[Rfam]
RNA sequence: AGGGUGUCAUCCAUUUUGGAGACAUACCUGGCGCAGUUAACGUAUUAUAAACAAUUUAUGAUCAAAUAUCUUGCUAAUAAAUGACAACUUAUCGCUUGGAGCCGGAUGGACCGAGACGGGAGG
Numbered sequence: 001a002g003g004g005u006g007u008c009a010u011c012c013a014u015u016u017u018g019g020a021g022a023c024a025u026a027c028c029u030g031g032c033g034c035a036g037u038u039a040a041c042g043u044a045u046u047a048u049a050a051a052c053a054a055u056u057u058a059u060g061a062u063c064a065a066a067u068a069u070c071u072u073g074c075u076a077a078u079a080a081a082u083g084a085c086a087a088c089u090u091a092u093c094g095c096u097u098g099g100a101g102c103c104g105g106a107u108g109g110a111c112c113g114a115g116a117c118g119g120g121a122g123g
Base pairs, nucleotide, nucleotide: 001029002028003027004025005024006023007022008021010020011019092119093118094117095115096114097113098112099111102109103108

Shown here is a 123-nucleotide sequence from Pelotomaculum isophthalicicum, a member of the family "pan motif". It is annotated as a cis-regulatory element. The organism belongs to Pelotomaculum isophthalicicum, within Bacteria. It scores 44 bits against the family's covariance model.